[Rfam]
RNA sequence: ACCACACUGAAGCAGCACAAGUAAUAUUGGGGUUUGGGUCCGUUUUUACACACACCAAUAUUUACGUGCUGCUAAAGUGGAGA
Numbered sequence: 001a002c003c004a005c006a007c008u009g010a011a012g013c014a015g016c017a018c019a020a021g022u023a024a025u026a027u028u029g030g031g032g033u034u035u036g037g038g039u040c041c042g043u044u045u046u047u048a049c050a051c052a053c054a055c056c057a058a059u060a061u062u063u064a065c066g067u068g069c070u071g072c073u074a075a076a077g078u079g080g081a082g083a
Stems, first nucleotide, its partner, number of pairs: 002082001005079003011073008020063001023062008

Source information: The family of this 83-nucleotide sequence from Scleropages formosus is "mir-16 microRNA precursor family". Taxonomically the source falls in Scleropages (Eukaryota, Euteleostomi, Actinopteri, Osteoglossomorpha). A search with the family's covariance model found it, with a score of 39 bits. Rfam links the family to the GO terms RISC complex and miRNA-mediated post-transcriptional gene silencing.